The family of this 70-nucleotide RNA from Hyalella azteca is "mir-252 microRNA precursor family". Taxonomically the source falls in Hyalella (Eukaryota, Eumetazoa, Pancrustacea, Senticaudata). It scores 54 bits against the family's covariance model. A reference for the family is Li et al. (2009), "Direct sequencing and expression analysis of a large number of miRNAs in Aedes aegypti and a multi-species survey of novel mosquito miRNAs", BMC Genomics.

RNA sequence: UUCCAAUCCUAAGUACUUGUGCCGCAGGAUGAUUAUAAUACUCCUGCUGCACCAGUCCUUACCACUGGAC
Numbered sequence: 001u002u003c004c005a006a007u008c009c010u011a012a013g014u015a016c017u018u019g020u021g022c023c024g025c026a027g028g029a030u031g032a033u034u035a036u037a038a039u040a041c042u043c044c045u046g047c048u049g050c051a052c053c054a055g056u057c058c059u060u061a062c063c064a065c066u067g068g069a070c
Stems, first nucleotide, its partner, number of pairs: 002069004007064001010061004015056003019052001024047006